[Rfam]
RNA sequence: GACAGCCAACCUUCACUACGGAUCGUCGGGCACGUACCUGCCCGUGAAAGGGAACCAU
Numbered sequence: 001g002a003c004a005g006c007c008a009a010c011c012u013u014c015a016c017u018a019c020g021g022a023u024c025g026u027c028g029g030g031c032a033c034g035u036a037c038c039u040g041c042c043c044g045u046g047a048a049a050g051g052g053a054a055c056c057a058u
Stems, first nucleotide, its partner, number of pairs: 010051002012048004027044006
RNA: msiK RNA